[Rfam]
RNA sequence: AUACUUGCGUAAUCGCUGCAUAUGGUUCAUAUGCAGAGGAAAGUCCAUGCUCGCACAGGCUGCGAUGCCUGUAGUGUUCGUGCUUGACGAAAUCAUAAGUCAAGGUAACAAAUGUUAACGGCAGUGGAACAUCCUAACUCAUAAGACAUGGAUUAGUACAUUUGAAAGUGCCACAGUGACGCAGUCGGAUUGGAAACAGUCCGAAUGGAACGCGGUAAACCCCACGAGUGAGCAACCCAAAAAUAGGUAGGGGCACCCUUGAUUAGGGAAGUGAACUGAAAAGGGGACGGGCAUUCAGGUAAAAUGUCCGUAGAUAGAUGAUUACGACCGGUGUACAAGGCUGACCACCGUAGAAGUACAUCGGAACAGAACAUGGCUUACUAAG
Numbered sequence: 001a002u003a004c005u006u007g008c009g010u011a012a013u014c015g016c017u018g019c020a021u022a023u024g025g026u027u028c029a030u031a032u033g034c035a036g037a038g039g040a041a042a043g044u045c046c047a048u049g050c051u052c053g054c055a056c057a058g059g060c061u062g063c064g065a066u067g068c069c070u071g072u073a074g075u076g077u078u079c080g081u082g083c084u085u086g087a088c089g090a091a092a093u094c095a096u097a098a099g100u101c102a103a104g105g106u107a108a109c110a111a112a113u114g115u116u117a118a119c120g121g122c123a124g125u126g127g128a129a130c131a132u133c134c135u136a137a138c139u140c141a142u143a144a145g146a147c148a149u150g151g152a153u154u155a156g157u158a159c160a161u162u163u164g165a166a167a168g169u170g171c172c173a174c175a176g177u178g179a180c181g182c183a184g185u186c187g188g189a190u191u192g193g194a195a196a197c198a199g200u201c202c203g204a205a206u207g208g209a210a211c212g213c214g215g216u217a218a219a220c221c222c223c224a225c226g227a228g229u230g231a232g233c234a235a236c237c238c239a240a241a242a243a244u245a246g247g248u249a250g251g252g253g254c255a256c257c258c259u260u261g262a263u264u265a266g267g268g269a270a271g272u273g274a275a276c277u278g279a280a281a282a283g284g285g286g287a288c289g290g291g292c293a294u295u296c297a298g299g300u301a302a303a304a305u306g307u308c309c310g311u312a313g314a315u316a317g318a319u320g321a322u323u324a325c326g327a328c329c330g331g332u333g334u335a336c337a338a339g340g341c342u343g344a345c346c347a348c349c350g351u352a353g354a355a356g357u358a359c360a361u362c363g364g365a366a367c368a369g370a371a372c373a374u375g376g377c378u379u380a381c382u383a384a385g
Stems, first nucleotide, its partner, number of pairs: 004385003007381001008326007016036006041379003045376005050232005055072006078227005083104006105119001106117004120222002123162004131153004139146002168220002170216003185204008236252003256286005287311009328364009
Bacterial RNase P class B: a 385-nucleotide RNA sequence from Lentibacillus kapialis. By type it is a ribozyme. Rfam describes the family as follows. Ribonuclease P (RNase P) is a ubiquitous endoribonuclease, found in archaea, bacteria and eukarya as well as chloroplasts and mitochondria. Rfam links the family to the GO terms dimeric ribonuclease P complex, tRNA processing and ribonuclease P activity.